[Rfam]
RNA sequence: GAGAUUUCGUCAAAGCCGACCUCCUCCCCGGCAAUGACGAAUACGGUCGACCUUCACCUCCUCCCGAGGGUCGACCUCCAAAACGACACCCGCCGGACCUCCUCCCCCGGCGGGUGUUGUUG
Numbered sequence: 001g002a003g004a005u006u007u008c009g010u011c012a013a014a015g016c017c018g019a020c021c022u023c024c025u026c027c028c029c030g031g032c033a034a035u036g037a038c039g040a041a042u043a044c045g046g047u048c049g050a051c052c053u054u055c056a057c058c059u060c061c062u063c064c065c066g067a068g069g070g071u072c073g074a075c076c077u078c079c080a081a082a083a084c085g086a087c088a089c090c091c092g093c094c095g096g097a098c099c100u101c102c103u104c105c106c107c108c109g110g111c112g113g114g115u116g117u118u119g120u121u122g
Stems, first nucleotide, its partner, number of pairs: 007040003011036002015032003045076010086117011